L17-Actino-Proteobacteria ribosomal protein leader: a 52-nucleotide sequence from Microbispora triticiradicis. The organism belongs to Microbispora, within Bacteria. The base pairs follow the family's consensus structure, which is taken from published work. It is annotated as a cis-regulatory leader. The match comes from Rfam's covariance-model search (57 bits).
RNA sequence: ACGACCGGCACGCCGGUCGGCCCGACCCCGGUACCUGACACGGCCGGGGCGG
Numbered sequence: 001a002c003g004a005c006c007g008g009c010a011c012g013c014c015g016g017u018c019g020g021c022c023c024g025a026c027c028c029c030g031g032u033a034c035c036u037g038a039c040a041c042g043g044c045c046g047g048g049g050c051g052g
Base pairs, nucleotide, nucleotide: 002019003018004017005016006015007014008013022052023051024050026049027048028047029046030045031044032043